The record is a 191-nucleotide RNA sequence, which matches "IMES-1 RNA motif" in Rfam.
Rfam classes the family as a non-coding RNA gene.
Rfam's curators put it in the seed alignment.
[Rfam]
RNA sequence: UCGCAUCCGACUAAAGACCAACUGCAGACGAGAAUUAGAGAGAGAACAUAGAAAGAGACCUGAGGGUGAAAGCGUUUUUAAGAGUCGACGAUAAAAAAGAGCUUAAAAAACCCACCAAGAAUUCCAGAGAAAGAAUUCAAGGAGCUAGAGAGAAUCUCACUUUAGACCCCUAAGGAACUCGAACUGAAGAA
Numbered sequence: 001u002c003g004c005a006u007c008c009g010a011c012u013a014a015a016g017a018c019c020a021a022c023u024g025c026a027g028a029c030g031a032g033a034a035u036u037a038g039a040g041a042g043a044g045a046a047c048a049u050a051g052a053a054a055g056a057g058a059c060c061u062g063a064g065g066g067u068g069a070a071a072g073c074g075u076u077u078u079u080a081a082g083a084g085u086c087g088a089c090g091a092u093a094a095a096a097a098a099g100a101g102c103u104u105a106a107a108a109a110a111c112c113c114a115c116c117a118a119g120a121a122u123u124c125c126a127g128a129g130a131a132a133g134a135a136u137u138c139a140a141g142g143a144g145c146u147a148g149a150g151a152g153a154a155u156c157u158c159a160c161u162u163u164a165g166a167c168c169c170c171u172a173a174g175g176a177a178c179u180c181g182a183a184c185u186g187a188a189g190a191a
Stems, first nucleotide, its partner, number of pairs: 001048001011038004060174002063171003074111005079105004119138005127158004145165006